[Rfam]
RNA: Mammalian CPEB3 ribozyme
Organism: Alligator mississippiensis
RNA sequence: AUCCUGCUGGAGAGGGUCAUAGCAGAAGCAUUCAUGUUGUGACCCCUGUCAGGUAGUACCUGGUAUUACCUAUGAAUUCUGCU
Number, nucleotide and partner (000 for none) at each position: 001a000002u000003c000004c000005u000006g000007c000008u000009g000010g000011a000012g000013a000014g045015g044016g043017u042018c041019a000020u000021a083022g082023c081024a080025g079026a078027a077028g040029c039030a038031u000032u000033c000034a000035u000036g000037u000038u030039g029040u028041g018042a017043c016044c015045c014046c000047u000048g000049u000050c000051a071052g070053g069054u068055a067056g066057u065058a064059c063060c000061u000062g000063g059064u058065a057066u056067u055068a054069c053070c052071u051072a000073u000074g000075a000076a000077u027078u026079c025080u024081g023082c022083u021